[Rfam]
Background
A member of the RNA family "Bacterial large subunit ribosomal RNA" from Spirochaeta africana, 439 nucleotides of a longer RNA.
RNA sequence: UUCGUCGAAAUAGCUUUAGGGCUAGCCUCAUACAAAUCUUGCGGAGGUAGAGCACUGAAUGGACUAGGGCCUGUCACAGGGUACCAAACCCAAUCAAACUCCGAAUGCCGUAAGACAACGUAUGGGAGUCAGACCAUGGGGGAAAAGCUUCAUGGUCAAAAGGGAAACAGCCCAGACCGUCGGCUAAGGUUCCAAAACAAUGCUCAGUGGAAAAGGAAGUGCGAUUGCAAAGACAGCCAGGAGGUUGGCUUAGAAGCAGCCAUCCCUUAAAAGAGUGCGUAAUAGCUCACUGGUCGAGUAGUCGUGCGCCGAUAAUGUAACGGAGCUAAGCAUUGUACCGAAGCUGCGGGUCAGUAGUUUACUACUGGCGGUAGACGAACGUUCUGUAGGCCGUUGAAGGUGUCCUGAGAGGGAUGCUGGAGGUAUCAGAAGCGAGAAU
Numbered sequence: 001u002u003c004g005u006c007g008a009a010a011u012a013g014c015u016u017u018a019g020g021g022c023u024a025g026c027c028u029c030a031u032a033c034a035a036a037u038c039u040u041g042c043g044g045a046g047g048u049a050g051a052g053c054a055c056u057g058a059a060u061g062g063a064c065u066a067g068g069g070c071c072u073g074u075c076a077c078a079g080g081g082u083a084c085c086a087a088a089c090c091c092a093a094u095c096a097a098a099c100u101c102c103g104a105a106u107g108c109c110g111u112a113a114g115a116c117a118a119c120g121u122a123u124g125g126g127a128g129u130c131a132g133a134c135c136a137u138g139g140g141g142g143a144a145a146a147g148c149u150u151c152a153u154g155g156u157c158a159a160a161a162g163g164g165a166a167a168c169a170g171c172c173c174a175g176a177c178c179g180u181c182g183g184c185u186a187a188g189g190u191u192c193c194a195a196a197a198c199a200a201u202g203c204u205c206a207g208u209g210g211a212a213a214a215g216g217a218a219g220u221g222c223g224a225u226u227g228c229a230a231a232g233a234c235a236g237c238c239a240g241g242a243g244g245u246u247g248g249c250u251u252a253g254a255a256g257c258a259g260c261c262a263u264c265c266c267u268u269a270a271a272a273g274a275g276u277g278c279g280u281a282a283u284a285g286c287u288c289a290c291u292g293g294u295c296g297a298g299u300a301g302u303c304g305u306g307c308g309c310c311g312a313u314a315a316u317g318u319a320a321c322g323g324a325g326c327u328a329a330g331c332a333u334u335g336u337a338c339c340g341a342a343g344c345u346g347c348g349g350g351u352c353a354g355u356a357g358u359u360u361a362c363u364a365c366u367g368g369c370g371g372u373a374g375a376c377g378a379a380c381g382u383u384c385u386g387u388a389g390g391c392c393g394u395u396g397a398a399g400g401u402g403u404c405c406u407g408a409g410a411g412g413g414a415u416g417c418u419g420g421a422g423g424u425a426u427c428a429g430a431a432g433c434g435a436g437a438a439u
Base pairs, nucleotide, nucleotide: 001379002378003377004376005375006374011024012023013022014021015020026128027126028125029124030123031122032121033120037115038114039113040112041111042110043109044108050102051100052099056096057095058094060092061091062090067085068084069082070081071080072079132157133156134155135154136153137152138151139150140149141148162173163172164171177349178348179347180346182345183344184343188339189338190337197336198335199334200333201332202331203330215310216309219307220306221305222304223303224302225301226300227299228298236294237293238292239291240290242267243266244265247261248260249259268272273288277286278285350369351368352367353366354365355364356363357362380434382431383430384429385428386427390424391423392422399418400417401416402415403414404413405412406411